[Rfam]
RNA sequence: GGACCGCUCCAACGGAGCUGAAGGCCAUACGGACAGCCGGGUCCACUGCCGA
Numbered sequence: 001g002g003a004c005c006g007c008u009c010c011a012a013c014g015g016a017g018c019u020g021a022a023g024g025c026c027a028u029a030c031g032g033a034c035a036g037c038c039g040g041g042u043c044c045a046c047u048g049c050c051g052a
Stems, first nucleotide, its partner, number of pairs: 001044005006018005
This 52-nucleotide RNA sequence from Ruminococcaceae bacterium YAD3003 belongs to the Rfam family "Streptococcus sRNA SpF59 (ldcC RNA)". It scores 62 bits against the family's covariance model. The base pairs follow the family's consensus structure, which was predicted with mfold.